Rfam assigns this 165-nucleotide RNA sequence from Eubacterium sp. CAG:841 to the family "Lysine riboswitch aptamer". It scores 92 bits against the family's covariance model. The literature on the family includes a 2003 paper in Nucleic Acids Res by Rodionov et al., "Regulation of lysine biosynthesis and transport genes in bacteria: yet another RNA riboswitch?". Pairs were carried over by alignment from the consensus structure, which is taken from published work. Lineage of the source: Bacteria > Bacillati > Clostridia > Eubacteriaceae > Eubacterium.
RNA sequence: UUUUUAGGUAGAGGCGCGGUGUUUAUAAGUAACGCGAACGAGAAGUAUCCGCUUCCGUGCGAAAGGAAACACUGCCGAGGGUACACGGUACGGAUUUUGCCGUGUAAACCGGUAUUGCAGAUAAUAUCUGCCGUACUGUCACUUAGGUGGAGAGCUAUCAUUGGA
Numbered sequence: 001u002u003u004u005u006a007g008g009u010a011g012a013g014g015c016g017c018g019g020u021g022u023u024u025a026u027a028a029g030u031a032a033c034g035c036g037a038a039c040g041a042g043a044a045g046u047a048u049c050c051g052c053u054u055c056c057g058u059g060c061g062a063a064a065g066g067a068a069a070c071a072c073u074g075c076c077g078a079g080g081g082u083a084c085a086c087g088g089u090a091c092g093g094a095u096u097u098u099g100c101c102g103u104g105u106a107a108a109c110c111g112g113u114a115u116u117g118c119a120g121a122u123a124a125u126a127u128c129u130g131c132c133g134u135a136c137u138g139u140c141a142c143u144u145a146g147g148u149g150g151a152g153a154g155c156u157a158u159c160a161u162u163g164g165a
Base pairs, nucleotide, nucleotide: 007159008158009157010156011155016075017074018073019072020071021070022069023068024067033059034058035057036056038054079110080109082107083105084104085103086102087101088100089099090098111137112136113135114134115133117131118130119129120128121127139150140149141148142147